This 77-nucleotide RNA from Helianthus annuus belongs to the Rfam family "Small nucleolar RNA snoR53Y".
The match comes from Rfam's covariance-model search (54 bits).
The source organism's lineage runs through Eukaryota, Magnoliopsida, eudicotyledons, campanulids and Helianthus.
By type it is a C/D-box small nucleolar RNA.
Its Rfam clan is "snoR53 clan".
[Rfam]
RNA sequence: GUUCCCGAUGAUGUACGAAUUUGACCAUGCUAAUUCUGAUAUUGAUGAAACAUUUUUCUGUCAUUUCUGAGGGGACA
Dot-bracket structure: (((((..................................................................))))).
Numbered sequence: 001g002u003u004c005c006c007g008a009u010g011a012u013g014u015a016c017g018a019a020u021u022u023g024a025c026c027a028u029g030c031u032a033a034u035u036c037u038g039a040u041a042u043u044g045a046u047g048a049a050a051c052a053u054u055u056u057u058c059u060g061u062c063a064u065u066u067c068u069g070a071g072g073g074g075a076c077a
Stems, first nucleotide, its partner, number of pairs: 001076005
A reference for the family is Brown et al. (2001), "Multiple snoRNA gene clusters from Arabidopsis", RNA.